[Rfam]
RNA sequence: ACAUGGGAUAGAGGUCGCGUAAUUCAUGAGUAGCCUGUUGGAUGUGGCAGACACAGUCGAAUGCAGGUAAAAGGGGAAAGCGCCGAAAGAACCGGAUGACUGCAGUCUGGUUUUUGGGCAUGCGGUGAAUAAUCGUAUGACUGUCAGAAGCGUAUGAGCGUGGAUGGAGAGCUAUCAGAUCU
Number, nucleotide and partner (000 for none) at each position: 001a000002c000003a000004u000005g000006g000007g176008a175009u174010a173011g172012a000013g000014g000015u000016c000017g083018c082019g081020u080021a000022a000023u077024u076025c075026a000027u000028g000029a000030g000031u000032a000033g068034c067035c066036u065037g064038u063039u000040g000041g000042a000043u000044g000045u000046g000047g000048c000049a000050g000051a000052c000053a000054c000055a000056g000057u000058c000059g000060a000061a000062u000063g038064c037065a036066g035067g034068u033069a000070a000071a000072a000073g000074g000075g025076g024077a023078a000079a000080g020081c019082g018083c017084c000085g000086a000087a115088a114089g113090a112091a111092c110093c109094g108095g107096a106097u105098g000099a000100c000101u000102g000103c000104a000105g097106u096107c095108u094109g093110g092111u091112u090113u089114u088115u087116g142117g141118g000119c139120a138121u137122g136123c135124g134125g133126u132127g000128a000129a000130u000131a000132a126133u125134c124135g123136u122137a121138u120139g119140a000141c117142u116143g000144u167145c166146a165147g000148a000149a000150g000151c000152g000153u000154a000155u000156g000157a000158g000159c000160g000161u000162g000163g000164a000165u146166g145167g144168a000169g000170a000171g000172c011173u010174a009175u008176c007177a000178g000179a000180u000181c000182u000
Rfam assigns this 182-nucleotide sequence from Roseburia sp. CAG:18 to the family "Lysine riboswitch aptamer". Rfam describes the family as follows. Riboswitches are metabolite binding domains within certain messenger RNAs that serve as precision sensors for their corresponding targets. NCBI's taxonomy places the organism under Bacteria, Bacillati, Bacillota, Clostridia, Roseburia. A search with the family's covariance model found it, with a score of 98 bits. The family's consensus secondary structure is taken from published work.